[Rfam]
The record is a 72-nucleotide RNA sequence, which matches "RAGATH-16 RNA" in Rfam.
RNA sequence: CUCAACUAAUGGGAGCGUCGCCGGUGUGUGAGAAUUAAGCUCACAGUUACGAGAUGGUGAAAAUCCCCGGAG
Numbered sequence: 001c002u003c004a005a006c007u008a009a010u011g012g013g014a015g016c017g018u019c020g021c022c023g024g025u026g027u028g029u030g031a032g033a034a035u036u037a038a039g040c041u042c043a044c045a046g047u048u049a050c051g052a053g054a055u056g057g058u059g060a061a062a063a064u065c066c067c068c069g070g071a072g
Stems, first nucleotide, its partner, number of pairs: 001015003006012001021070004027045006